[Rfam]
RNA: Small nucleolar RNA snoR97
Organism: Populus tomentosa
Nucleotides: 097
Stems, first nucleotide, its partner, number of pairs: 033089005043078006050070003
Number, partner (000 for none) and nucleotide at each position: 001000c002000c003000u004000u005000g006000c007000c008000a009000g010000c011000g012000g013000g014000a015000u016000u017000a018000g019000g020000g021000u022000c023000u024000g025000a026000a027000a028000a029000a030000c031000u032000c033089u034088g035087u036086u037085g038000u039000c040000a041000u042000c043078a044077g045076c046075u047074u048073c049000a050070u051069c052068u053000c054000c055000u056000u057000c058000a059000u060000a061000a062000c063000c064000c065000a066000c067000c068052g069051g070050a071000u072000c073048g074047g075046a076045g077044u078043u079000a080000a081000a082000u083000a084000a085037u086036a087035g088034c089033a090000c091000u092000a093000c094000a095000c096000a097000u